[Rfam]
RNA: SAM (S-adenosyl methionine) riboswitch aptamer
RNA sequence: GGUCAUGAGUGUCAGCGACAAGCCCCGGCUCGCUGACCGGCAACCCUCCACCGCGGUGGGGUGCCCCGGGUGAAGACCUGGCACUGGGCCGUCCGGCCGCAGUGCAAGCGCGGGCC
Numbered sequence: 001g002g003u004c005a006u007g008a009g010u011g012u013c014a015g016c017g018a019c020a021a022g023c024c025c026c027g028g029c030u031c032g033c034u035g036a037c038c039g040g041c042a043a044c045c046c047u048c049c050a051c052c053g054c055g056g057u058g059g060g061g062u063g064c065c066c067c068g069g070g071u072g073a074a075g076a077c078c079u080g081g082c083a084c085u086g087g088g089c090c091g092u093c094c095g096g097c098c099g100c101a102g103u104g105c106a107a108g109c110g111c112g113g114g115c116c
Base pairs, nucleotide, nucleotide: 001078002077003076004075009038011037012036013035014034015033016032021030022029039065040064041063044061045060046059048056049055081105082104083103084102085101086100087098088097089096090095